[Rfam]
RNA sequence: AGACUGUAGAAUCUCUACAGGUAAGUGUGUGAUUUCUUUAGUAACAUCACAUUUGCCUGCAGAGAUUUUCCAGUCU
Numbered sequence: 001a002g003a004c005u006g007u008a009g010a011a012u013c014u015c016u017a018c019a020g021g022u023a024a025g026u027g028u029g030u031g032a033u034u035u036c037u038u039u040a041g042u043a044a045c046a047u048c049a050c051a052u053u054u055g056c057c058u059g060c061a062g063a064g065a066u067u068u069u070c071c072a073g074u075c076u
Stems, first nucleotide, its partner, number of pairs: 003074004009068008020058002023054002026051004
The record is a 76-nucleotide sequence from Sus scrofa, which matches "mir-216 microRNA precursor family" in Rfam. A search with the family's covariance model found it, with a score of 58 bits. Pairs were carried over by alignment from the consensus structure, which was predicted with WAR.